[Rfam]
RNA sequence: GGGCCGGGUCGUGACUGGCGCGCUUGGGAUGGGACCGACCAUCGGGGAGCGGCCCGAAGGGAAACUGUGCCGUGCGCCUGGGCCGAACCG
Numbered sequence: 001g002g003g004c005c006g007g008g009u010c011g012u013g014a015c016u017g018g019c020g021c022g023c024u025u026g027g028g029a030u031g032g033g034a035c036c037g038a039c040c041a042u043c044g045g046g047g048a049g050c051g052g053c054c055c056g057a058a059g060g061g062a063a064a065c066u067g068u069g070c071c072g073u074g075c076g077c078c079u080g081g082g083c084c085g086a087a088c089c090g
Stems, first nucleotide, its partner, number of pairs: 005056008015046002017078005029042004069083003

ZMP/ZTP riboswitch aptamer (pfl RNA motif): a 90-nucleotide RNA from Streptomyces glaucescens.
Pairs were carried over by alignment from the consensus structure, which is taken from published work.
Rfam links the family to the GO terms regulation of purine nucleotide biosynthetic process and one-carbon metabolic process.
Lineage of the source: Bacteria > Actinomycetota > Actinomycetes > Kitasatosporales > Streptomyces.